[Rfam]
RNA sequence: UGGGUUGCAGUGAUUAUAAAAAAAAGAAAUACUUAAUUGUUUCUGAAUGCUGUAUCCAUGGCAUGAUAGACUCUUGUUACACCCAUAGAAUAUGAGCAACC
Numbered sequence: 001u002g003g004g005u006u007g008c009a010g011u012g013a014u015u016a017u018a019a020a021a022a023a024a025a026g027a028a029a030u031a032c033u034u035a036a037u038u039g040u041u042u043c044u045g046a047a048u049g050c051u052g053u054a055u056c057c058a059u060g061g062c063a064u065g066a067u068a069g070a071c072u073c074u075u076g077u078u079a080c081a082c083c084c085a086u087a088g089a090a091u092a093u094g095a096g097c098a099a100c101c
Stems, first nucleotide, its partner, number of pairs: 003101002006098002